The record is a 137-nucleotide sequence from Pseudomonas aeruginosa, which matches "Pseudomonas sRNA P11" in Rfam.
A reference for the family is Livny et al. (2006), "Identification of 17 Pseudomonas aeruginosa sRNAs and prediction of sRNA-encoding genes in 10 diverse pathogens using the bioinformatic tool sRNAPredict2", Nucleic Acids Res.
The organism belongs to Pseudomonas, within Bacteria.
Rfam classes the family as a non-coding RNA gene.
About the family: This small RNA (sRNA) was computationally identified in the genome of the opportunistic pathogen Pseudomonas aeruginosa and its expression verified by northern blot analysis. P11 is located between a putative threonine protein kinase and putative nitrate reductase and appears to be conserved in several Pseudomonas species.
RNA sequence: AAUAGCGCAAGUUGGCACGGCGCCUGCUUGGGUUCUCCCGACAAUCGACAACAAAGCGCCUGCCUCAACGACGAGGCGGCGUUUCCCGACCGAACGGGACCUGGACAAAGGCGUCCUGCUGGCAACAGCGGGACGCC
Numbered sequence: 001a002a003u004a005g006c007g008c009a010a011g012u013u014g015g016c017a018c019g020g021c022g023c024c025u026g027c028u029u030g031g032g033u034u035c036u037c038c039c040g041a042c043a044a045u046c047g048a049c050a051a052c053a054a055a056g057c058g059c060c061u062g063c064c065u066c067a068a069c070g071a072c073g074a075g076g077c078g079g080c081g082u083u084u085c086c087c088g089a090c091c092g093a094a095c096g097g098g099a100c101c102u103g104g105a106c107a108a109a110g111g112c113g114u115c116c117u118g119c120u121g122g123c124a125a126c127a128g129c130g131g132g133a134c135g136c137c
Stems, first nucleotide, its partner, number of pairs: 012108003015027003056082005063075001065074002084099005110137007118129004